About this RNA
This 57-nucleotide RNA sequence from Longispora fulva belongs to the Rfam family "msiK RNA". The family's consensus secondary structure is taken from published work.
RNA sequence: GGCACUGCACUUUCACUCGGAUCGUCCGGCACGUUCCUGCCGGUGGAAGGAAGGUUC
Dot-bracket structure: .........((((((..........((((((......))))))))))))........